[Rfam]
RNA sequence: UGGUGGCAAGUGAUGAUUCCUCUAAUGAUGCUUUCCUGAUGUACGACCUAUGAGGGUUGCAUAGUCACUACCUCUUCUGAUGCCAUCA
Numbered sequence: 001u002g003g004u005g006g007c008a009a010g011u012g013a014u015g016a017u018u019c020c021u022c023u024a025a026u027g028a029u030g031c032u033u034u035c036c037u038g039a040u041g042u043a044c045g046a047c048c049u050a051u052g053a054g055g056g057u058u059g060c061a062u063a064g065u066c067a068c069u070a071c072c073u074c075u076u077c078u079g080a081u082g083c084c085a086u087c088a
Stems, first nucleotide, its partner, number of pairs: 002087006
Small nucleolar RNA SNORD11B: an 88-nucleotide sequence from Ophiophagus hannah. For this family Rfam cites "snoSeeker: an advanced computational package for screening of guide and orphan snoRNA genes in the human genome" (Yang et al., Nucleic Acids Res, 2006). By type it is a C/D-box small nucleolar RNA. NCBI's taxonomy places the organism under Eukaryota, Sauropsida, Unidentata, Episquamata, Ophiophagus. The family is grouped with related families in Rfam's "SNORD11 clan".